[Rfam]
RNA sequence: CUCUGGAGAGCGCCGCCAAUUAAGGACGGCCACCAAAGGGGAAAACCUAUCAUAUAGGUAAACUUUCAGGUUUCAGGACAGAG
Numbered sequence: 001c002u003c004u005g006g007a008g009a010g011c012g013c014c015g016c017c018a019a020u021u022a023a024g025g026a027c028g029g030c031c032a033c034c035a036a037a038g039g040g041g042a043a044a045a046c047c048u049a050u051c052a053u054a055u056a057g058g059u060a061a062a063c064u065u066u067c068a069g070g071u072u073u074c075a076g077g078a079c080a081g082a083g
Base pairs, nucleotide, nucleotide: 001083002082003081004080005079012030013029014028015027032071033070034069036066039065040064041063046057